RNA: Glycine riboswitch aptamer
RNA sequence: CGACCCCGCGCGGGAGAGUCUCCGGUGAGGUUGCCGGAGGCGCCGAAGGAGCAACUCCUCCCCGGAAUCUCUCAGGCCCACGUACCGCGCGGACGAG
Numbered sequence: 001c002g003a004c005c006c007c008g009c010g011c012g013g014g015a016g017a018g019u020c021u022c023c024g025g026u027g028a029g030g031u032u033g034c035c036g037g038a039g040g041c042g043c044c045g046a047a048g049g050a051g052c053a054a055c056u057c058c059u060c061c062c063c064g065g066a067a068u069c070u071c072u073c074a075g076g077c078c079c080a081c082g083u084a085c086c087g088c089g090c091g092g093a094c095g096a097g
Stems, first nucleotide, its partner, number of pairs: 006092008020040002023037001042077003045073002049071003055065002